Description:
Shown here is a 219-nucleotide sequence from Desulfonema magnum, a member of the family "Group I catalytic intron".
[Rfam]
RNA sequence: UCACAAGAUUAACAGAAGUUGAAUGUUAAUCGUGAAAUGGGCUGUACAUGAGGAAACUUGUGUGCGAUUACCUAUCAAAUUCGGGGAACCCUUUAAUAUGGCAAUCCCGAGCCAAGCUUUGACAAAUUGUCAGAGAAGGUGUAGAGACUAAACGGUAGGCACCUAAUUCCUAUAUGGAGAUGGUGAAGAGAUAGUCCAGACCACAAACUUUAUUUAGGC
Numbered sequence: 001u002c003a004c005a006a007g008a009u010u011a012a013c014a015g016a017a018g019u020u021g022a023a024u025g026u027u028a029a030u031c032g033u034g035a036a037a038u039g040g041g042c043u044g045u046a047c048a049u050g051a052g053g054a055a056a057c058u059u060g061u062g063u064g065c066g067a068u069u070a071c072c073u074a075u076c077a078a079a080u081u082c083g084g085g086g087a088a089c090c091c092u093u094u095a096a097u098a099u100g101g102c103a104a105u106c107c108c109g110a111g112c113c114a115a116g117c118u119u120u121g122a123c124a125a126a127u128u129g130u131c132a133g134a135g136a137a138g139g140u141g142u143a144g145a146g147a148c149u150a151a152a153c154g155g156u157a158g159g160c161a162c163c164u165a166a167u168u169c170c171u172a173u174a175u176g177g178a179g180a181u182g183g184u185g186a187a188g189a190g191a192u193a194g195u196c197c198a199g200a201c202c203a204c205a206a207a208c209u210u211u212a213u214u215u216a217g218g219c
Base pairs, nucleotide, nucleotide: 005026007024009022010021011020012019013018030041031040071159072158073157074156076154081110082109083108084107085106086105090101091100093098111140112139118133119132121131122130123129124128144197146196147195148194149193150192162183163182167178168177169176204217206215207214
Source information:
Taxonomically the source falls in Desulfonema (Bacteria, Pseudomonadati, Thermodesulfobacteriota, Desulfobacterales).